Rfam assigns this 95-nucleotide RNA from Rosa chinensis to the family "MIR535 microRNA precursor family". The literature on the family includes a 2010 paper in Nucleic Acids Res by Zeng et al., "Conservation and divergence of microRNAs and their functions in Euphorbiaceous plants". A search with the family's covariance model found it, with a score of 90 bits. Pairs were carried over by alignment from the consensus structure, which was predicted with RNAalifold.
RNA sequence: GGAUUUGUUUGACGAUGAGAGAGAGCACGCUUGUCAGCAUCCAUGAAACAGUCAGGAGUGUUUACGAGCGUGCUCCCUCUCAUCGUCAUACAAUC
Dot-bracket structure: .........(((((.((..((.(.((((((((((.............................)))))))))).).))..)).))))).......